Description: The record is a 134-nucleotide sequence from Ifrita kowaldi, which matches "U8 small nucleolar RNA" in Rfam. Rfam classes the family as a C/D-box small nucleolar RNA. A reference for the family is Peculis (1997), "The sequence of the 5' end of the U8 small nucleolar RNA is critical for 5.8S and 28S rRNA maturation", Mol Cell Biol. Its family is annotated with nucleolus and RNA processing in the Gene Ontology. Lineage of the source: Eukaryota > Eumetazoa > Sarcopterygii > Neoaves > Ifrita.
[Rfam]
RNA sequence: UCGUCAGUGCGGUACAUCCUGACCUGCCCCGCCCUGCGGGCAGCACGUGAUGAGCGCGGCGUGAUGACGCAGUGAUUACGUCACGCGGGCGCGCGGGCCACGCAACAAAGCCCGCGCUGUCCCCAGACUCUGAC
Dot-bracket structure: .......................(((.(((((...))))))))......................(..((..(....).))..)...((.((((((((...........))))))))....))...........
Numbered sequence: 001u002c003g004u005c006a007g008u009g010c011g012g013u014a015c016a017u018c019c020u021g022a023c024c025u026g027c028c029c030c031g032c033c034c035u036g037c038g039g040g041c042a043g044c045a046c047g048u049g050a051u052g053a054g055c056g057c058g059g060c061g062u063g064a065u066g067a068c069g070c071a072g073u074g075a076u077u078a079c080g081u082c083a084c085g086c087g088g089g090c091g092c093g094c095g096g097g098c099c100a101c102g103c104a105a106c107a108a109a110g111c112c113c114g115c116g117c118u119g120u121c122c123c124c125a126g127a128c129u130c131u132g133a134c
Stems, first nucleotide, its partner, number of pairs: 024043003028040005066084001069081002073078001088123002091117008